Record summary
Rfam assigns this 315-nucleotide RNA sequence from Betacoronavirus tylonycteridis to the family "Betacoronavirus 3'UTR". By type it is a cis-regulatory element. Rfam's curators put it in the seed alignment. A reference for the family is Goebel et al. (2004), "The 3' cis-acting genomic replication element of the severe acute respiratory syndrome coronavirus can function in the murine coronavirus genome", J Virol. Lineage of the source: Viruses > Riboviria > Nidovirales > Orthocoronavirinae > Betacoronavirus tylonycteridis. The 3' UTR of betacoronaviruses is approximately 300-500 nucleotides long. The most 5' structure is the bulged stem-loop (BSL), starting downstream of the N gene stop codon and is essential for viral replication. It is predicted to be conserved among betacoronaviruses. Downstream to the BSL lies the hypervariable bulged-stemloop region (HVR), containing a triple helix junction.

RNA sequence: UUCAGAGGCUUGAAUGCCAAUGAAGAGUAACAAGAGUUGAGGCAACUGCUAGCGUUCAGGUAACCCCUUUACGUGAUGCAUUUGUCCACUCUUGCACAGAAUGGAAUCAUGUUAAACUUACAGUGCAAGAAAGUAAGUUAACCCAUUUAAUUGAUAGCUAUGCUUAGUGUAAUGUGUAACUAUAGAGAGUAAUUUAAAGACUGUCACCUCUGCGUGAUUGCAAGUGAACAGUGCCCCUGUGGAAGAGCUCUAUAGUGUAAAGUGUAAAUAAAAAUAGCUAUUAUUCAAUUAGAUUAGGCUUAAUAGAUGAUUAAC
Numbered sequence: 001u002u003c004a005g006a007g008g009c010u011u012g013a014a015u016g017c018c019a020a021u022g023a024a025g026a027g028u029a030a031c032a033a034g035a036g037u038u039g040a041g042g043c044a045a046c047u048g049c050u051a052g053c054g055u056u057c058a059g060g061u062a063a064c065c066c067c068u069u070u071a072c073g074u075g076a077u078g079c080a081u082u083u084g085u086c087c088a089c090u091c092u093u094g095c096a097c098a099g100a101a102u103g104g105a106a107u108c109a110u111g112u113u114a115a116a117c118u119u120a121c122a123g124u125g126c127a128a129g130a131a132a133g134u135a136a137g138u139u140a141a142c143c144c145a146u147u148u149a150a151u152u153g154a155u156a157g158c159u160a161u162g163c164u165u166a167g168u169g170u171a172a173u174g175u176g177u178a179a180c181u182a183u184a185g186a187g188a189g190u191a192a193u194u195u196a197a198a199g200a201c202u203g204u205c206a207c208c209u210c211u212g213c214g215u216g217a218u219u220g221c222a223a224g225u226g227a228a229c230a231g232u233g234c235c236c237c238u239g240u241g242g243a244a245g246a247g248c249u250c251u252a253u254a255g256u257g258u259a260a261a262g263u264g265u266a267a268a269u270a271a272a273a274a275u276a277g278c279u280a281u282u283a284u285u286c287a288a289u290u291a292g293a294u295u296a297g298g299c300u301u302a303a304u305a306g307a308u309g310a311u312u313a314a315c
Base pairs, nucleotide, nucleotide: 031094032093033092034091035090037088041086042085043084044083045082048079049078052074053073054072055071058068059067105312106311107310108309109308110307112141113140114139116138117137118136119135120134121133145294146293147292148291149290150289151288152287153286154285155280156279157278158277159276160275161274164271165270166269180255181254182253183252184251185250186249187248200232201231202230203229204228205226206225207224234242235241299306300305